[Rfam]
RNA sequence: UAUAUAAUAUUUUCCGAGCUGCUUUCUCUAAGGAUAUUUGUCUAAGGGAAUCAGCCUAUGGGUAUGAAGAGAAAUUUUCAUGCCUCCCGUAUGUAGGAAAGGAAACCAACUAUGAAAUGA
Numbered sequence: 001u002a003u004a005u006a007a008u009a010u011u012u013u014c015c016g017a018g019c020u021g022c023u024u025u026c027u028c029u030a031a032g033g034a035u036a037u038u039u040g041u042c043u044a045a046g047g048g049a050a051u052c053a054g055c056c057u058a059u060g061g062g063u064a065u066g067a068a069g070a071g072a073a074a075u076u077u078u079c080a081u082g083c084c085u086c087c088c089g090u091a092u093g094u095a096g097g098a099a100a101g102g103a104a105a106c107c108a109a110c111u112a113u114g115a116a117a118u119g120a
Stems, first nucleotide, its partner, number of pairs: 011105005018055004023050002026048003032043004060085011086097002
RNA: Molybdenum/Tungsten riboswitch aptamer (Moco RNA motif)
Organism: Anaerovirgula multivorans